RNA sequence: GUCAGGAAAUGGAAGAAAAAGAGAAUCUUAGAAUUGUAGGAAUGAGAACAUGAAGGAAAGCCUAAGUGCUAAUAACCCCUCUAGCAAUAGAGGAUAUUUUGUUUCAUGUUUUCCUGAUGCCUCUCAUUCCUAUGGUUCUAGGGUGCUCCUUCCUUUUCCUUUAACCA
Numbered sequence: 001g002u003c004a005g006g007a008a009a010u011g012g013a014a015g016a017a018a019a020a021g022a023g024a025a026u027c028u029u030a031g032a033a034u035u036g037u038a039g040g041a042a043u044g045a046g047a048a049c050a051u052g053a054a055g056g057a058a059a060g061c062c063u064a065a066g067u068g069c070u071a072a073u074a075a076c077c078c079c080u081c082u083a084g085c086a087a088u089a090g091a092g093g094a095u096a097u098u099u100u101g102u103u104u105c106a107u108g109u110u111u112u113c114c115u116g117a118u119g120c121c122u123c124u125c126a127u128u129c130c131u132a133u134g135g136u137u138c139u140a141g142g143g144u145g146c147u148c149c150u151u152c153c154u155u156u157u158c159c160u161u162u163a164a165c166c167a
Base pairs, nucleotide, nucleotide: 011156012155013154015152016151017150021148022147023146026143027142028141029140030139031138032137033136034135035134037132038131039130040129041128042127043126044125045124046123047122049119050118051117053115055114056113057112058111059110060109061108
A member of the RNA family "MIR2118 microRNA precursor family" from Leersia perrieri, 167 nucleotides long. NCBI's taxonomy places the organism under Eukaryota, Magnoliopsida, Liliopsida, Poaceae, Leersia. The match comes from Rfam's covariance-model search (132 bits). On this family, see Xue et al., Nucleic Acids Res 2009: "Characterization and expression profiles of miRNAs in rice seeds". Pairs were carried over by alignment from the consensus structure, which was predicted with RNAalifold.